[Rfam]
RNA sequence: CCGCCCGUCGCUCCUACCGAUUGGAUGGUCCGGUGAAGUGUUUGGAUUGCGCGGCGCGGGGGCAACCCUGCGCGCGCGAGAAGCUCACUGAACCUUAUCAUCUAGAGGAAGGAGAAGUCGUAACAAGGUCUCCGUAGGUGAACCUGCGGAGGGAUCAUUC
Numbered sequence: 001c002c003g004c005c006c007g008u009c010g011c012u013c014c015u016a017c018c019g020a021u022u023g024g025a026u027g028g029u030c031c032g033g034u035g036a037a038g039u040g041u042u043u044g045g046a047u048u049g050c051g052c053g054g055c056g057c058g059g060g061g062g063c064a065a066c067c068c069u070g071c072g073c074g075c076g077c078g079a080g081a082a083g084c085u086c087a088c089u090g091a092a093c094c095u096u097a098u099c100a101u102c103u104a105g106a107g108g109a110a111g112g113a114g115a116a117g118u119c120g121u122a123a124c125a126a127g128g129u130c131u132c133c134g135u136a137g138g139u140g141a142a143c144c145u146g147c148g149g150a151g152g153g154a155u156c157a158u159u160c
Stems, first nucleotide, its partner, number of pairs: 001127001003124001006120002009117001011114005017108002021104001023103007032094003037089004043083001047079007055072007129152010
RNA: Eukaryotic small subunit ribosomal RNA, nucleotides 1618 to 1777